[Rfam]
RNA sequence: GGCUUCCUGAUGCUUACCACAGGCUGUGUUCUUACCCUGACUGUAGAGAAAGAAGAAAUAAGAGUAAGCCUAUGCACUUUGGCCCUGGUCUGUAUUGUAUAUGGGCAAACAUGG
Numbered sequence: 001g002g003c004u005u006c007c008u009g010a011u012g013c014u015u016a017c018c019a020c021a022g023g024c025u026g027u028g029u030u031c032u033u034a035c036c037c038u039g040a041c042u043g044u045a046g047a048g049a050a051a052g053a054a055g056a057a058a059u060a061a062g063a064g065u066a067a068g069c070c071u072a073u074g075c076a077c078u079u080u081g082g083c084c085c086u087g088g089u090c091u092g093u094a095u096u097g098u099a100u101a102u103g104g105g106c107a108a109a110c111a112u113g114g
Base pairs, nucleotide, nucleotide: 002059004057005056006055008053020043021042022041026037028035029034068106069105070104071103072102073101080092081091082090084088
The record is a 114-nucleotide sequence from Ictidomys tridecemlineatus, which matches "Small nucleolar RNA SNORA51" in Rfam.
It is annotated as an H/ACA-box small nucleolar RNA.
The match comes from Rfam's covariance-model search (76 bits).